[Rfam]
RNA sequence: CCGUUUUGGGGAGUAGCCGCCCGGCAUCGAGCCGGAGGGCGCGUCAACACACUUGAUCACCCGAUCAUGGCGCGUCCGGCCGAUUCAUCAGAAUCGGUACUGGUGAGACCAGGACUCGCGCAGCGCCUUGCCGGGCGCCUCUGCGCCUGUCCGGUUUCAUCUGCGCCCGGCUC
Dot-bracket structure: ....................(((.........))).((((((((((.......(((((....)))))))))))))))................................................................................................
Numbered sequence: 001c002c003g004u005u006u007u008g009g010g011g012a013g014u015a016g017c018c019g020c021c022c023g024g025c026a027u028c029g030a031g032c033c034g035g036a037g038g039g040c041g042c043g044u045c046a047a048c049a050c051a052c053u054u055g056a057u058c059a060c061c062c063g064a065u066c067a068u069g070g071c072g073c074g075u076c077c078g079g080c081c082g083a084u085u086c087a088u089c090a091g092a093a094u095c096g097g098u099a100c101u102g103g104u105g106a107g108a109c110c111a112g113g114a115c116u117c118g119c120g121c122a123g124c125g126c127c128u129u130g131c132c133g134g135g136c137g138c139c140u141c142u143g144c145g146c147c148u149g150u151c152c153g154g155u156u157u158c159a160u161c162u163g164c165g166c167c168c169g170g171c172u173c
Stems, first nucleotide, its partner, number of pairs: 021035003037077010054067005

Rfam assigns this 173-nucleotide RNA from Solimonas aquatica to the family "Manganese Mn2+ riboswitch aptamer (yybP-ykoY)".
Its family is annotated with manganese ion binding in the Gene Ontology.
A reference for the family is Argaman et al. (2001), "Novel small RNA-encoding genes in the intergenic regions of Escherichia coli", Curr Biol.
It scores 54 bits against the family's covariance model.
The pairing is the family consensus, mapped onto this sequence.
The source organism's lineage runs through Bacteria, Pseudomonadati, Pseudomonadota, Gammaproteobacteria and Solimonas.